[Rfam]
Record summary
This 160-nucleotide sequence from Staphylococcus sp. HMSC071G07 belongs to the Rfam family "RNA S.aureus Orsay G".
RNA sequence: GUAACAAGGGGAUAACGAAUAAGGUGAUUUAGGGGUAGGCUAUUACAUAAUAUAAUAGUUACAAUCUCUUGUUCGUAUGCGUUACUAUUCAAACAUCUUCAAUAUUUAUUACUUACUUUCCUUUCUAUUUGCCGACUAGCGAUGACUAGUCGGUUUUUUA
Number, nucleotide and partner (000 for none) at each position: 001g085002u084003a083004a082005c081006a000007a000008g000009g000010g000011g000012a000013u000014a073015a072016c071017g070018a069019a065020u064021a000022a000023g000024g000025u000026g000027a000028u000029u000030u000031a122032g121033g120034g119035g118036u000037a000038g000039g059040c058041u057042a056043u055044u054045a000046c000047a000048u000049a000050a000051u000052a000053u000054a044055a043056u042057a041058g040059u039060u000061a000062c000063a000064a020065u019066c000067u000068c000069u018070u017071g016072u015073u014074c000075g000076u000077a000078u000079g000080c000081g005082u004083u003084a002085c001086u000087a000088u000089u000090c000091a000092a000093a000094c000095a000096u000097c000098u000099u000100c000101a000102a000103u000104a000105u000106u000107u000108a000109u000110u000111a000112c000113u000114u000115a000116c000117u000118u035119u034120c033121c032122u031123u000124u000125c000126u000127a000128u000129u000130u000131g154132c153133c152134g151135a150136c149137u148138a147139g146140c000141g000142a000143u000144g000145a000146c139147u138148a137149g136150u135151c134152g133153g132154u131155u000156u000157u000158u000159u000160a000

NCBI's taxonomy places the organism under Bacteria, Bacillota, Bacilli, Staphylococcaceae, Staphylococcus.
The literature on the family includes a 2010 paper in RNA Biol by Marchais et al., "RsaOG, a new staphylococcal family of highly transcribed non-coding RNA".
By type it is a small RNA.